[Rfam]
RNA: PreQ1 (pre queuosine) riboswitch aptamer
RNA sequence: AAAGAAGAGGUUCAUAGCUGAAACCCUCUAUAAAAAACUAUGGGAUC
Numbered sequence: 001a002a003a004g005a006a007g008a009g010g011u012u013c014a015u016a017g018c019u020g021a022a023a024c025c026c027u028c029u030a031u032a033a034a035a036a037a038c039u040a041u042g043g044g045a046u047c
Base pairs, nucleotide, nucleotide: 006029007028008027009026010025015040016039